[Rfam]
RNA sequence: AUCGUUCGGUUGGACUCAAGGGCGGGUCGGCGCAAUCCCUGUGAAAGGGGGUGGCGCCAAUGACAGUAUUUGAAACAUUGUUUCUGAUGAUCAGUUUUAGCACGUUGAUCGUCGUCGUACUGUCAUUUCACCAAAAGAAAUAAGCCCCCCUUGAAGUCCUGAGCAAGGGCUUGGGGGCUUAUUUCGACUCAAACUACGCCGAUCACCCUAUGCAGGGAGCCAACGAUGCAAUCGAUCACUCGUGCACCAACACGAGUG
Numbered sequence: 001a002u003c004g005u006u007c008g009g010u011u012g013g014a015c016u017c018a019a020g021g022g023c024g025g026g027u028c029g030g031c032g033c034a035a036u037c038c039c040u041g042u043g044a045a046a047g048g049g050g051g052u053g054g055c056g057c058c059a060a061u062g063a064c065a066g067u068a069u070u071u072g073a074a075a076c077a078u079u080g081u082u083u084c085u086g087a088u089g090a091u092c093a094g095u096u097u098u099a100g101c102a103c104g105u106u107g108a109u110c111g112u113c114g115u116c117g118u119a120c121u122g123u124c125a126u127u128u129c130a131c132c133a134a135a136a137g138a139a140a141u142a143a144g145c146c147c148c149c150c151u152u153g154a155a156g157u158c159c160u161g162a163g164c165a166a167g168g169g170c171u172u173g174g175g176g177g178c179u180u181a182u183u184u185c186g187a188c189u190c191a192a193a194c195u196a197c198g199c200c201g202a203u204c205a206c207c208c209u210a211u212g213c214a215g216g217g218a219g220c221c222a223a224c225g226a227u228g229c230a231a232u233c234g235a236u237c238a239c240u241c242g243u244g245c246a247c248c249a250a251c252a253c254g255a256g257u258g
Stems, first nucleotide, its partner, number of pairs: 001227001002225001006222001010202003013197001015156001016154007025145001027143001033053002036051005062124007076089002100115002167185002204219001206217002237258008
Dot-bracket structure: ((...(...((((.((((((((..(.(.....((.(((((......)))))))........(((((((.......((..........))..........((............))..)))))))..................).)..))))))).)..........((...............))...........)..))).(.((........)).)..)..).).........((((((((......))))))))
Shown here is a 258-nucleotide RNA from Aureibacillus halotolerans, a member of the family "BsrG". Its family is annotated with toxin activity and autolysis in the Gene Ontology. The family's consensus secondary structure was predicted with WAR. Rfam 15.1 lists 614 matches to the family in 343 species. The family's RNA type in Rfam is small RNA.